A member of the RNA family "sRNA-Xcc1" from Halodesulfovibrio spirochaetisodalis, 89 nucleotides long. The family's RNA type in Rfam is small RNA. NCBI's taxonomy places the organism under Bacteria, Desulfovibrionia, Desulfovibrionales, Desulfovibrionaceae, Halodesulfovibrio.

RNA sequence: GAUCGGGAGUACGAGGGCGAUACAAUACCCGUAAGGGGAAAACCCUCUGCCGACCUGAGUGCGGUGUUGAAGCUCCCGAUCUUUUUUAU
Numbered sequence: 001g002a003u004c005g006g007g008a009g010u011a012c013g014a015g016g017g018c019g020a021u022a023c024a025a026u027a028c029c030c031g032u033a034a035g036g037g038g039a040a041a042a043c044c045c046u047c048u049g050c051c052g053a054c055c056u057g058a059g060u061g062c063g064g065u066g067u068u069g070a071a072g073c074u075c076c077c078g079a080u081c082u083u084u085u086u087u088a089u
Stems, first nucleotide, its partner, number of pairs: 001081009013047004028037003048066005

For this family Rfam cites "sRNA-Xcc1, an integron-encoded transposon- and plasmid-transferred trans-acting sRNA, is under the positive control of the key virulence regulators HrpG and HrpX of Xanthomonas campestris pathovar campestris" (Chen et al., RNA Biol, 2011).